RNA sequence: UCUGCUGAAGUUUUCCUCAGAAUAGCAGUAACAUUUUCAGUUUUAUAAGAUAAAGUAAAUGAUUAGAGGCCUUGAGAUUAAAACAACCUUAACCUACUCUCAAACUUUAAAUAUGUAAGAAGCUCUUGUUACUUAAGUGAACAUGGGCAUUAGAAUGAAUUAUUACUAGUGGGCCAUUUUUGGUAAGCAGAACUGGUGAUGUGAGAUGAACUGAAUAUAAGAUUAAGAUGCUGGAAUGCACACUCAUCAGACACUACAAAAGAUGUUAGUUCAUCUAGACAGCCUGAUGGUGGCCAUGGAAGUUGGAAUCUGCUAAGAAGUUGUAACAACUCAUAAGCUGAAUGAACUAGCUCUGAAAAUGAAUGGCACUCAAGUAUACUAUUCAUAUCUCAUCAUCAGGGUAGAAACAAAGUCCUGAUAAGUAGACAGAUGUGGAGGUUUAUAAUGAAGUCUUGAGAAUGAUUCUGAAUCAAACAGUCUCUAGUGCAGAU
Dot-bracket structure: ((((.(....(.(((....))).)..(((((.(.......(((((((.....(((....(((....(((..(((((..(.....)..))))))))....)))..)).).....))))))).((((.((((.........)))).))))............).))))).....((((.(((((.....))))).))))....((........))...((.((.(...(((......(.(...((.................(((.((((((((((.......((.((.(((...((.........))...)))(...)....(......)....)).))...)))))))))))))...................))...)))))...).)).)).((((((((.........)))))))).....).))))(.((((((((..(......((.....((....))....))...).))))))))..).....
RNA: Eukaryotic large subunit ribosomal RNA, nucleotides 941 to 1431